[Rfam]
RNA sequence: AGCUAUGAUGAUGAAAUGAAGAAUUUCCUGACUUGGUAUUGACACUCAAGGGUGUUGCUGACCAAGGUGUGAUUGAUUUUAAUCUUCUCUCUGAGCUG
Numbered sequence: 001a002g003c004u005a006u007g008a009u010g011a012u013g014a015a016a017u018g019a020a021g022a023a024u025u026u027c028c029u030g031a032c033u034u035g036g037u038a039u040u041g042a043c044a045c046u047c048a049a050g051g052g053u054g055u056u057g058c059u060g061a062c063c064a065a066g067g068u069g070u071g072a073u074u075g076a077u078u079u080u081a082a083u084c085u086u087c088u089c090u091c092u093g094a095g096c097u098g
Base pairs, nucleotide, nucleotide: 002096003095041056042055043054044053

This 98-nucleotide RNA from Hucho hucho belongs to the Rfam family "Z30 small nucleolar RNA". The match comes from Rfam's covariance-model search (58 bits). NCBI's taxonomy places the organism under Eukaryota, Opisthokonta, Vertebrata, Euteleosteomorpha, Hucho.